SAM riboswitch aptamer (S box leader): a 108-nucleotide RNA sequence from Hymenobacter sp. 5317J-9. Taxonomically the source falls in Hymenobacter (Bacteria, Pseudomonadati, Cytophagia, Cytophagales). Gene Ontology term of the family: regulation of gene expression.
[Rfam]
RNA sequence: CUGCUAUCCAGAAAGACCGAGGGACCGGGCCCGAUGACGUCUUGGCAACCUGCCGCGAGUAGGUGCCAACUCCCGUUUCGCCGCUUUUUUGGCGAAAGAAGAUGACAG
Numbered sequence: 001c002u003g004c005u006a007u008c009c010a011g012a013a014a015g016a017c018c019g020a021g022g023g024a025c026c027g028g029g030c031c032c033g034a035u036g037a038c039g040u041c042u043u044g045g046c047a048a049c050c051u052g053c054c055g056c057g058a059g060u061a062g063g064u065g066c067c068a069a070c071u072c073c074c075g076u077u078u079c080g081c082c083g084c085u086u087u088u089u090u091g092g093c094g095a096a097a098g099a100a101g102a103u104g105a106c107a108g
Stems, first nucleotide, its partner, number of pairs: 001108003005104004013043005021032003026075004044067004049063002053059001071100001076097008